RNA sequence: AGAGGCUCAUGAUGAUUUGAAUUUGCCUACAUUGUCUGAUUGUGUAAUAUAUGACAGAGACAUUAUUAGUUCUGAGGCCUUU
Numbered sequence: 001a002g003a004g005g006c007u008c009a010u011g012a013u014g015a016u017u018u019g020a021a022u023u024u025g026c027c028u029a030c031a032u033u034g035u036c037u038g039a040u041u042g043u044g045u046a047a048u049a050u051a052u053g054a055c056a057g058a059g060a061c062a063u064u065a066u067u068a069g070u071u072c073u074g075a076g077g078c079c080u081u082u
Stems, first nucleotide, its partner, number of pairs: 001082002004079004